TPP riboswitch aptamer (THI element): a 117-nucleotide RNA from Shewanella violacea. A search with the family's covariance model found it, with a score of 71 bits.
[Rfam]
RNA sequence: CCGCCUGCCAAGGGGUGAGACUGUUAUGUACAUAUGCCAGUUUCUGAGAUGUCAGAUGACAAACCCUUUGAACCUGAUCCGGCUAAUACCGGCGUAGGAAUGGGCCAAUAGGUUUGA
Numbered sequence: 001c002c003g004c005c006u007g008c009c010a011a012g013g014g015g016u017g018a019g020a021c022u023g024u025u026a027u028g029u030a031c032a033u034a035u036g037c038c039a040g041u042u043u044c045u046g047a048g049a050u051g052u053c054a055g056a057u058g059a060c061a062a063a064c065c066c067u068u069u070g071a072a073c074c075u076g077a078u079c080c081g082g083c084u085a086a087u088a089c090c091g092g093c094g095u096a097g098g099a100a101u102g103g104g105c106c107a108a109u110a111g112g113u114u115u116g117a
Stems, first nucleotide, its partner, number of pairs: 008103003011067004016061001017044007051060003073098004079092004
Dot-bracket structure: .......(((((((.((((((((..............)))))))......(((....))))..)))).....((((..((((......))))..))))..)))..............